[Rfam]
RNA sequence: CCGCGUUCUCAGGGCGGGGCGAAAUUCCCCACCGGCGGUAUCUGUGGCUUGACCACAGCAGCCCGCGAGCGCCCACGCCAGCCUUUGUUGGCGUGGGGUCAGCAGAUCUGGUGAGAUGCCAGAGCCGACGGUCACAGUCCGGAUGAAAGAGAUCGCGC
Numbered sequence: 001c002c003g004c005g006u007u008c009u010c011a012g013g014g015c016g017g018g019g020c021g022a023a024a025u026u027c028c029c030c031a032c033c034g035g036c037g038g039u040a041u042c043u044g045u046g047g048c049u050u051g052a053c054c055a056c057a058g059c060a061g062c063c064c065g066c067g068a069g070c071g072c073c074c075a076c077g078c079c080a081g082c083c084u085u086u087g088u089u090g091g092c093g094u095g096g097g098g099u100c101a102g103c104a105g106a107u108c109u110g111g112u113g114a115g116a117u118g119c120c121a122g123a124g125c126c127g128a129c130g131g132u133c134a135c136a137g138u139c140c141g142g143a144u145g146a147a148a149g150a151g152a153u154c155g156c157g158c
Stems, first nucleotide, its partner, number of pairs: 003156003007152004017029003031138002033127002035066004061125002069103002107123005129141003

Description: Rfam assigns this 158-nucleotide sequence from Rhodoferax saidenbachensis to the family "FMN riboswitch aptamer (RFN element)". NCBI's taxonomy places the organism under Bacteria, Betaproteobacteria, Burkholderiales, Comamonadaceae, Rhodoferax. The family's consensus secondary structure is taken from published work.